[Rfam]
RNA: uup RNA
Nucleotides: 048
Base pairs, nucleotide, nucleotide: 011047012046013045014044015043017041018040019039
Number, partner (000 for none) and nucleotide at each position: 001000a002000g003000a004000a005000g006000a007000u008000c009000u010000g011047c012046u013045c014044u015043g016000u017041a018040c019039a020000g021000u022000c023000c024000g025000u026000u027000c028000c029000g030000a031000u032000g033000a034000a035000a036000c037000a038000u039019u040018g041017u042000g043015c044014a045013g046012a047011g048000c